[Rfam]
RNA sequence: UACUGCUACAGCUCUUUCAGAAUUUGUCUAGCAGGUUUUUUGAUCUUCACUGGAAAGCAGCCCCC
Numbered sequence: 001u002a003c004u005g006c007u008a009c010a011g012c013u014c015u016u017u018c019a020g021a022a023u024u025u026g027u028c029u030a031g032c033a034g035g036u037u038u039u040u041u042g043a044u045c046u047u048c049a050c051u052g053g054a055a056a057g058c059a060g061c062c063c064c065c
Base pairs, nucleotide, nucleotide: 034062035061036060037056038055039054040053041052042051044049
The family of this 65-nucleotide sequence from Callithrix jacchus is "U7 small nuclear RNA". It scores 52 bits against the family's covariance model.